[Rfam]
Nucleotides: 085
Base pairs, nucleotide, nucleotide: 001083002082003081004080
Number, partner (000 for none) and nucleotide at each position: 001083g002082g003081u004080c005000a006000a007000u008000g009000a010000u011000g012000a013000a014000u015000u016000c017000u018000g019000c020000a021000u022000u023000u024000u025000u026000u027000a028000u029000c030000u031000g032000a033000a034000a035000c036000u037000a038000u039000a040000a041000u042000u043000g044000a045000u046000g047000u048000a049000g050000u051000u052000u053000u054000a055000a056000u057000c058000c059000u060000u061000a062000g063000c064000u065000c066000u067000a068000g069000a070000a071000u072000u073000a074000c075000u076000c077000u078000g079000a080004g081003a082002c083001c084000u085000g
This 85-nucleotide sequence from Anolis carolinensis belongs to the Rfam family "Small nucleolar RNA SNORD45". The base pairs follow the family's consensus structure, which was predicted with PFOLD. The source organism's lineage runs through Eukaryota, Deuterostomia, Vertebrata, Squamata and Anolis. On this family, see Kiss-Laszlo et al., Cell 1996: "Site-specific ribose methylation of preribosomal RNA: a novel function for small nucleolar RNAs". Its family is annotated with RNA processing and nucleolus in the Gene Ontology. Rfam 15.1 lists 1,629 matches to the family in 521 species.